The family of this 176-nucleotide sequence from Gemmiger formicilis is "Lysine riboswitch aptamer".
The source organism's lineage runs through Bacteria, Bacillati, Bacillota, Oscillospiraceae and Gemmiger.

RNA sequence: UCCAAACACAGAGGCGCGAAGCGCAUCAGUACCGGUUUUCAUCAUGCCCUGCCAGGGGCGAGAGCCGGGAAAGGGUUCUUCGCCGAAGAAAAUGCGCGGCACGCAUUUUCUGGGUCCGCAGCCGAACAGGUGCGGGACUGUCACGCUGUAAAACAGUGUGUUGCGCUGUGUUAUAU
Number, nucleotide and partner (000 for none) at each position: 001u000002c000003c000004a000005a000006a171007c170008a169009c168010a167011g166012a000013g000014g000015c000016g083017c082018g081019a080020a079021g078022c000023g076024c075025a000026u000027c000028a000029g000030u000031a000032c068033c067034g066035g065036u064037u063038u062039u061040c000041a000042u000043c000044a000045u000046g000047c000048c000049c000050u000051g000052c000053c000054a000055g000056g000057g000058g000059c000060g000061a039062g038063a037064g036065c035066c034067g033068g032069g000070a000071a000072a000073g000074g000075g024076u023077u000078c021079u020080u019081c018082g017083c016084c000085g000086a000087a111088g110089a109090a108091a107092a106093u105094g104095c103096g102097c000098g000099g000100c000101a000102c096103g095104c094105a093106u092107u091108u090109u089110c088111u087112g139113g138114g000115u136116c135117c134118g133119c132120a131121g000122c129123c000124g000125a000126a000127c000128a000129g122130g000131u120132g119133c118134g117135g116136g115137a000138c113139u112140g000141u000142c160143a159144c158145g157146c156147u155148g000149u000150a000151a000152a000153a000154c000155a147156g146157u145158g144159u143160g142161u000162u000163g000164c000165g000166c011167u010168g009169u008170g007171u006172u000173a000174u000175a000176u000